[Rfam]
RNA sequence: UCCGUCCGGGUCCGUGGUUGCGUCGUGGGGACGCUCCGGCCAGCCCGGGCGUCCGCGCGACAAGCCGAUGCCAGUCGCAGGCGAAACGGUCCACGUAAGUCGACCUCCCCUCGAGGGGGGCGACGAUCACGGUGCGGCUUAGAAGUCAGUCCUGCCUCGGUCGGACCGUCAGAUGCGGUCCUCGCCGGGAGAAGGCGGGUAGUGGCAGAGAAGCUGCGAGAGCCUCAGCAGGCGGUUGUGGGGACGAAGACCAGGUCGGCCGGACGGG
Numbered sequence: 001u002c003c004g005u006c007c008g009g010g011u012c013c014g015u016g017g018u019u020g021c022g023u024c025g026u027g028g029g030g031a032c033g034c035u036c037c038g039g040c041c042a043g044c045c046c047g048g049g050c051g052u053c054c055g056c057g058c059g060a061c062a063a064g065c066c067g068a069u070g071c072c073a074g075u076c077g078c079a080g081g082c083g084a085a086a087c088g089g090u091c092c093a094c095g096u097a098a099g100u101c102g103a104c105c106u107c108c109c110c111u112c113g114a115g116g117g118g119g120g121c122g123a124c125g126a127u128c129a130c131g132g133u134g135c136g137g138c139u140u141a142g143a144a145g146u147c148a149g150u151c152c153u154g155c156c157u158c159g160g161u162c163g164g165a166c167c168g169u170c171a172g173a174u175g176c177g178g179u180c181c182u183c184g185c186c187g188g189g190a191g192a193a194g195g196c197g198g199g200u201a202g203u204g205g206c207a208g209a210g211a212a213g214c215u216g217c218g219a220g221a222g223c224c225u226c227a228g229c230a231g232g233c234g235g236u237u238g239u240g241g242g243g244a245c246g247a248a249g250a251c252c253a254g255g256u257c258g259g260c261c262g263g264a265c266g267g268g
Stems, first nucleotide, its partner, number of pairs: 001268009012259003015253005068239003071081001073139007090132002095127001099124004104119005130246001151232005156189005193225004202217002205214002